The record is a 74-nucleotide RNA sequence from Caloramator sp. E03, which matches "Fluoride riboswitch aptamer (crcB RNA motif)" in Rfam. Pairs were carried over by alignment from the consensus structure, which is taken from published work. Rfam 15.1 lists 2,293 matches to the family in 1,982 species. The match comes from Rfam's covariance-model search (48 bits).
RNA sequence: UUUUACAUGGGAGAUGAAGUUCCUCCUUGGAGAAUAUUCCUAAAUGCUUUAUAGCUGAUGACUUCUACUUUAGU
Numbered sequence: 001u002u003u004u005a006c007a008u009g010g011g012a013g014a015u016g017a018a019g020u021u022c023c024u025c026c027u028u029g030g031a032g033a034a035u036a037u038u039c040c041u042a043a044a045u046g047c048u049u050u051a052u053a054g055c056u057g058a059u060g061a062c063u064u065c066u067a068c069u070u071u072a073g074u
Stems, first nucleotide, its partner, number of pairs: 010026004016065006046055003